[Rfam]
RNA sequence: UACCGAAAGGGCAAAGCUGGAGUAAUCCGGUGACGCAAAGCCACGGAUCCUGUUUUUCAGGACAGCCGGGUUGCCGAAG
Numbered sequence: 001u002a003c004c005g006a007a008a009g010g011g012c013a014a015a016g017c018u019g020g021a022g023u024a025a026u027c028c029g030g031u032g033a034c035g036c037a038a039a040g041c042c043a044c045g046g047a048u049c050c051u052g053u054u055u056u057u058c059a060g061g062a063c064a065g066c067c068g069g070g071u072u073g074c075c076g077a078a079g
Stems, first nucleotide, its partner, number of pairs: 011036002016031006039072004044068003048062005
Shown here is a 79-nucleotide RNA from Desulfuromusa kysingii, a member of the family "c-di-GMP-I-UAU riboswitch aptamer". NCBI's taxonomy places the organism under Bacteria, Pseudomonadati, Thermodesulfobacteriota, Desulfuromonadales, Desulfuromusa.